The family of this 122-nucleotide RNA from Galbibacter orientalis is "Bacteroidete tryptophan peptide leader RNA". The organism belongs to Galbibacter orientalis, within Bacteria. A search with the family's covariance model found it, with a score of 78 bits. The base pairs follow the family's consensus structure, which is taken from published work.

RNA sequence: UUUCUAUAUUUGGUUCAUCAAUGAGAACAAUUAGAAGAAAUACUUGGUGGUGGUCUAACUUACGUAAAACGUCGUGAGGUAGCAUUGCUGUGAUAUUUUUAAAAUAUACAAAAAGGCUUGUC
Numbered sequence: 001u002u003u004c005u006a007u008a009u010u011u012g013g014u015u016c017a018u019c020a021a022u023g024a025g026a027a028c029a030a031u032u033a034g035a036a037g038a039a040a041u042a043c044u045u046g047g048u049g050g051u052g053g054u055c056u057a058a059c060u061u062a063c064g065u066a067a068a069a070c071g072u073c074g075u076g077a078g079g080u081a082g083c084a085u086u087g088c089u090g091u092g093a094u095a096u097u098u099u100u101a102a103a104a105u106a107u108a109c110a111a112a113a114a115g116g117c118u119u120g121u122c
Stems, first nucleotide, its partner, number of pairs: 036100003040096003043092001045090003049086004057080001059078003062072003